RNA sequence: AAUUUGCUGUGAUGAUUCCUCAAGGACGGUAUCCGAUUGAGGUUGUGCUGUAAAAUGCCUUCCUCGUAUGAUUACAUCCAUACUGACAAGGAAUCCUGAGUAUAAU
Numbered sequence: 001a002a003u004u005u006g007c008u009g010u011g012a013u014g015a016u017u018c019c020u021c022a023a024g025g026a027c028g029g030u031a032u033c034c035g036a037u038u039g040a041g042g043u044u045g046u047g048c049u050g051u052a053a054a055a056u057g058c059c060u061u062c063c064u065c066g067u068a069u070g071a072u073u074a075c076a077u078c079c080a081u082a083c084u085g086a087c088a089a090g091g092a093a094u095c096c097u098g099a100g101u102a103u104a105a106u
Base pairs, nucleotide, nucleotide: 001106003104005102006101007100038066039065040064041063042062
RNA: Small nucleolar RNA Z118/Z121/Z120
Organism: Dichanthelium oligosanthes